[Rfam]
RNA sequence: CAAUUGCCGGAUGAAUGCGGCCAGGCCGCUCUUAUCCGGCCUACAGGUGAGGAAAGUCCGGGCUUCACAGGGCAGGAUGCCGGAUAACGUCCGGUGGAGGUGACUCCAAGGAAAGUGCAACAGAAAUAAACCGCCGCAACUAUGCGGUAAGGGUGGAAAGGCAGUGUAAGAGACUACCGCCUGCACGGUAACGGGCAGGGCACAUGUAAACCCCAUCCGAAGCAAGACCAAAUAGAAAGCGUUUUAAGUCUGCCCGGCGAGCUUUCAGGUAGGUCGCUUGAGACUACUGGCAACAGUAGUACCAGACAGAUGAUCAUUCACGACAUAACCCGGCUUAUCGUCCUGCUUGAUUU
Numbered sequence: 001c002a003a004u005u006g007c008c009g010g011a012u013g014a015a016u017g018c019g020g021c022c023a024g025g026c027c028g029c030u031c032u033u034a035u036c037c038g039g040c041c042u043a044c045a046g047g048u049g050a051g052g053a054a055a056g057u058c059c060g061g062g063c064u065u066c067a068c069a070g071g072g073c074a075g076g077a078u079g080c081c082g083g084a085u086a087a088c089g090u091c092c093g094g095u096g097g098a099g100g101u102g103a104c105u106c107c108a109a110g111g112a113a114a115g116u117g118c119a120a121c122a123g124a125a126a127u128a129a130a131c132c133g134c135c136g137c138a139a140c141u142a143u144g145c146g147g148u149a150a151g152g153g154u155g156g157a158a159a160g161g162c163a164g165u166g167u168a169a170g171a172g173a174c175u176a177c178c179g180c181c182u183g184c185a186c187g188g189u190a191a192c193g194g195g196c197a198g199g200g201c202a203c204a205u206g207u208a209a210a211c212c213c214c215a216u217c218c219g220a221a222g223c224a225a226g227a228c229c230a231a232a233u234a235g236a237a238a239g240c241g242u243u244u245u246a247a248g249u250c251u252g253c254c255c256g257g258c259g260a261g262c263u264u265u266c267a268g269g270u271a272g273g274u275c276g277c278u279u280g281a282g283a284c285u286a287c288u289g290g291c292a293a294c295a296g297u298a299g300u301a302c303c304a305g306a307c308a309g310a311u312g313a314u315c316a317u318u319c320a321c322g323a324c325a326u327a328a329c330c331c332g333g334c335u336u337a338u339c340g341u342c343c344u345g346c347u348u349g350a351u352u353u
Stems, first nucleotide, its partner, number of pairs: 001345002006342001008340001009338001010318005016312001018049002021046001054336003058333005063222004070255004075218005080094005095109001096107004110213002115211002117207003131152002133148006160178002163175003179201001180199005186193002226275004235266006248258003283300007
Dot-bracket structure: ((...(.(((((((.(.((.(........................).))....[[[.[[[[[((((...[[[[.((((((((((.....)))))(((((....)))).)((...(((((...........((((((((....))))))..)).......((.(((.......))).))((((((.((....)).))))).)...)))..)))))))))))))...((((.....((((((.......(((.]]]])))..)))))).....)))).......(((((((....)))))))...........).)))))..........]]]]]]]].).).).))........
RNA: Bacterial RNase P class A